[Rfam]
RNA sequence: CAAGUCCCCGUCAGGUAAGGUCUGGCCAGCCACCUGUACCGAGUGUUGCGUCCGGUCAGGACAGACAUACUGUCGAACGCCCCGGGCGAAGCGUACACAGGGAAUCAUACAGGCCACAGGGGGAACGGCGCUCCCCUGAAGCAUGGAACAGCACCGUUAAGAGUAAAAAAGCAGACCGCGACGUUUUUAACGUGACGGAAGCCGAAACAAAGGAAUCGUCAGUUUCUCUGCGAAGCUUGCUUCAGCGUUGAACAGGUGAGAUUCCGGAGGGUCUGCCGGUGUCAUCAGGGCG
Numbered sequence: 001c002a003a004g005u006c007c008c009c010g011u012c013a014g015g016u017a018a019g020g021u022c023u024g025g026c027c028a029g030c031c032a033c034c035u036g037u038a039c040c041g042a043g044u045g046u047u048g049c050g051u052c053c054g055g056u057c058a059g060g061a062c063a064g065a066c067a068u069a070c071u072g073u074c075g076a077a078c079g080c081c082c083c084g085g086g087c088g089a090a091g092c093g094u095a096c097a098c099a100g101g102g103a104a105u106c107a108u109a110c111a112g113g114c115c116a117c118a119g120g121g122g123g124a125a126c127g128g129c130g131c132u133c134c135c136c137u138g139a140a141g142c143a144u145g146g147a148a149c150a151g152c153a154c155c156g157u158u159a160a161g162a163g164u165a166a167a168a169a170a171g172c173a174g175a176c177c178g179c180g181a182c183g184u185u186u187u188u189a190a191c192g193u194g195a196c197g198g199a200a201g202c203c204g205a206a207a208c209a210a211a212g213g214a215a216u217c218g219u220c221a222g223u224u225u226c227u228c229u230g231c232g233a234a235g236c237u238u239g240c241u242u243c244a245g246c247g248u249u250g251a252a253c254a255g256g257u258g259a260g261a262u263u264c265c266g267g268a269g270g271g272u273c274u275g276c277c278g279g280u281g282u283c284a285u286c287a288g289g290g291c292g
Stems, first nucleotide, its partner, number of pairs: 012036004019031003039101002043098004047093002049088007145286001146283001151282006171276006178202002182197004208270001212265006

A member of the RNA family "Group II catalytic intron D1-D4-6" from Desulfonema magnum, 292 nucleotides long. The match comes from Rfam's covariance-model search (87 bits). Gene Ontology term of the family: Group II intron splicing. Lineage of the source: Bacteria > Pseudomonadati > Desulfobacteria > Desulfobacterales > Desulfonema.